[Rfam]
RNA sequence: CUCCGCGAAAUCUAUUUAGGUAGAGCCUCGCGUUUAUGCCCUGGGGGGUAGAGCACUGAAUGGGCUAGGGGGUCCCACAGACUUACCAAACCUAAUCAAACUCCGAAUACCCAGGAGUCUUACGCGGGAGACACACGGCGGGUGCUAACGUCCGUCGUGAAGAGGGAAACAACCCAGACCAACAGCUAAGGCCCCCAAUUCGUGGCUAAGUGGGAAAGGAUGUGGAAAUCCCAAAACAACCAGGAGGUUGGCUUAGAAGCAGCCAUCCUUUAAAGAAAGCGUAACAGCUCACUGGUCUAAAUAAGGGUUUCCGCGCCGAAGAUGUACCGGGGCUCAAGCCACGAGCCGAAGCUUUGGGUUCGUCCGCAAGGGCGAGCGGUAGCGGAGCGUUCUGUAAGCUGAUGAAGGAGGACCCGUGAGGGCCUCUGGAGGUAUCAGAAGUGCGAAU
Numbered sequence: 001c002u003c004c005g006c007g008a009a010a011u012c013u014a015u016u017u018a019g020g021u022a023g024a025g026c027c028u029c030g031c032g033u034u035u036a037u038g039c040c041c042u043g044g045g046g047g048g049u050a051g052a053g054c055a056c057u058g059a060a061u062g063g064g065c066u067a068g069g070g071g072g073u074c075c076c077a078c079a080g081a082c083u084u085a086c087c088a089a090a091c092c093u094a095a096u097c098a099a100a101c102u103c104c105g106a107a108u109a110c111c112c113a114g115g116a117g118u119c120u121u122a123c124g125c126g127g128g129a130g131a132c133a134c135a136c137g138g139c140g141g142g143u144g145c146u147a148a149c150g151u152c153c154g155u156c157g158u159g160a161a162g163a164g165g166g167a168a169a170c171a172a173c174c175c176a177g178a179c180c181a182a183c184a185g186c187u188a189a190g191g192c193c194c195c196c197a198a199u200u201c202g203u204g205g206c207u208a209a210g211u212g213g214g215a216a217a218g219g220a221u222g223u224g225g226a227a228a229u230c231c232c233a234a235a236a237c238a239a240c241c242a243g244g245a246g247g248u249u250g251g252c253u254u255a256g257a258a259g260c261a262g263c264c265a266u267c268c269u270u271u272a273a274a275g276a277a278a279g280c281g282u283a284a285c286a287g288c289u290c291a292c293u294g295g296u297c298u299a300a301a302u303a304a305g306g307g308u309u310u311c312c313g314c315g316c317c318g319a320a321g322a323u324g325u326a327c328c329g330g331g332g333c334u335c336a337a338g339c340c341a342c343g344a345g346c347c348g349a350a351g352c353u354u355u356g357g358g359u360u361c362g363u364c365c366g367c368a369a370g371g372g373c374g375a376g377c378g379g380u381a382g383c384g385g386a387g388c389g390u391u392c393u394g395u396a397a398g399c400u401g402a403u404g405a406a407g408g409a410g411g412a413c414c415c416g417u418g419a420g421g422g423c424c425u426c427u428g429g430a431g432g433u434a435u436c437a438g439a440a441g442u443g444c445g446a447a448u
Stems, first nucleotide, its partner, number of pairs: 001387006011024005026130001027128007036121001040115006051104001052102002057098003061094004068087002070084005134159010164175003179357004184353003190347003199344001201343006218317002222314010239296005245269003250264003270274001275290001279288002358377008388443001390440005398433003407427005413422003

Notes:
The record is a 448-nucleotide part of an RNA from Rhodoblastus acidophilus, which matches "Bacterial large subunit ribosomal RNA" in Rfam. Pairs were carried over by alignment from the consensus structure, which is taken from published work. Taxonomically the source falls in Rhodoblastus (Bacteria, Pseudomonadati, Pseudomonadota, Hyphomicrobiales). A search with the family's covariance model found it, with a score of 2710 bits.